A member of the RNA family "DUF805 RNA" from Flavobacterium psychrotolerans, 68 nucleotides long. A search with the family's covariance model found it, with a score of 86 bits. Clan: DUF805 clan. The family has 46 seed sequences and 281 matches in Rfam 15.1. The base pairs follow the family's consensus structure, which is taken from published work. It is annotated as a cis-regulatory element.

RNA sequence: UAAAAAUGGAGACCAGAACCCAUUUCAAAAACGGGGCGUAACCGAAAAGCCAAACGAGUAGGAAACAA
Dot-bracket structure: .....((((..........))))...........(((....[[.....))).........]]......
Numbered sequence: 001u002a003a004a005a006a007u008g009g010a011g012a013c014c015a016g017a018a019c020c021c022a023u024u025u026c027a028a029a030a031a032c033g034g035g036g037c038g039u040a041a042c043c044g045a046a047a048a049g050c051c052a053a054a055c056g057a058g059u060a061g062g063a064a065a066c067a068a
Stems, first nucleotide, its partner, number of pairs: 006023004035051003042062002